drz-agam-1 ribozyme: a 79-nucleotide RNA sequence from Hermetia illucens. The match comes from Rfam's covariance-model search (37 bits). Gene Ontology term of the family: catalytic activity. For this family Rfam cites "Widespread occurrence of self-cleaving ribozymes" (Webb et al., Science, 2009). Pairs were carried over by alignment from the consensus structure, which is taken from published work.
[Rfam]
RNA sequence: UGCUACCAAAGCCUAUCUUCACCUCCACGUGGUGAUCACUGGGUGUUCUCUCUAAACAAAGAGGUACAAAUGGAGAAGG
Numbered sequence: 001u002g003c004u005a006c007c008a009a010a011g012c013c014u015a016u017c018u019u020c021a022c023c024u025c026c027a028c029g030u031g032g033u034g035a036u037c038a039c040u041g042g043g044u045g046u047u048c049u050c051u052c053u054a055a056a057c058a059a060a061g062a063g064g065u066a067c068a069a070a071u072g073g074a075g076a077a078g079g
Stems, first nucleotide, its partner, number of pairs: 012079003016075001018073002021033003044066004049062003053058001